[Rfam]
RNA sequence: GGGGAGCUUGGCCUUCUCUUCCCAGUUCUUCCUGGAAUCAGGAAAAGCUGGGUUGAGAGGGCAAAAAAAAAAAAAA
Numbered sequence: 001g002g003g004g005a006g007c008u009u010g011g012c013c014u015u016c017u018c019u020u021c022c023c024a025g026u027u028c029u030u031c032c033u034g035g036a037a038u039c040a041g042g043a044a045a046a047g048c049u050g051g052g053u054u055g056a057g058a059g060g061g062c063a064a065a066a067a068a069a070a071a072a073a074a075a076a
Stems, first nucleotide, its partner, number of pairs: 014059005021052005029044006

Shown here is a 76-nucleotide sequence from Microcebus murinus, a member of the family "mir-320 microRNA precursor family". Rfam links the family to the GO terms miRNA-mediated post-transcriptional gene silencing, long-term synaptic potentiation and positive regulation of stem cell proliferation. The literature on the family includes a 2006 paper in Genome Res by Berezikov et al., "Many novel mammalian microRNA candidates identified by extensive cloning and RAKE analysis". The match comes from Rfam's covariance-model search (92 bits).